[Rfam]
RNA sequence: AUGAACCUUCGGGGCAGGGUGCAAUUCCCUACCGGCGGUGACGGCGCGAAUGCGCGCCGAAGCCCGCGACUCCCGGAACUGCGAAUGCGGAUCCGGGACUGACUUGGUGAGAAUCCAAGGCCGACGGUGACAGUCCGGAUGAGAGAAGGUUUAA
Numbered sequence: 001a002u003g004a005a006c007c008u009u010c011g012g013g014g015c016a017g018g019g020u021g022c023a024a025u026u027c028c029c030u031a032c033c034g035g036c037g038g039u040g041a042c043g044g045c046g047c048g049a050a051u052g053c054g055c056g057c058c059g060a061a062g063c064c065c066g067c068g069a070c071u072c073c074c075g076g077a078a079c080u081g082c083g084a085a086u087g088c089g090g091a092u093c094c095g096g097g098a099c100u101g102a103c104u105u106g107g108u109g110a111g112a113a114u115c116c117a118a119g120g121c122c123g124a125c126g127g128u129g130a131c132a133g134u135c136c137g138g139a140u141g142a143g144a145g146a147a148g149g150u151u152u153a154a
Stems, first nucleotide, its partner, number of pairs: 003152008017029003031134002033123002035067004062121002071098007103119005125137003